About this RNA:
Rfam assigns this 103-nucleotide RNA sequence from Paenibacillus albidus to the family "Purine riboswitch aptamer". Rfam links the family to the GO term purine nucleobase biosynthetic process. The match comes from Rfam's covariance-model search (66 bits).
RNA sequence: AAUUAUAUAUAACAUUUCUCUUGUAUAAGCCCGUUAAUGUGGAACGGGCGUUUCUACAGGCAACCGUAAAUUGCCCCAGGCUACGAGAGGCGCAAGACUCGUA
Numbered sequence: 001a002a003u004u005a006u007a008u009a010u011a012a013c014a015u016u017u018c019u020c021u022u023g024u025a026u027a028a029g030c031c032c033g034u035u036a037a038u039g040u041g042g043a044a045c046g047g048g049c050g051u052u053u054c055u056a057c058a059g060g061c062a063a064c065c066g067u068a069a070a071u072u073g074c075c076c077c078a079g080g081c082u083a084c085g086a087g088a089g090g091c092g093c094a095a096g097a098c099u100c101g102u103a
Stems, first nucleotide, its partner, number of pairs: 018089008029049007059075005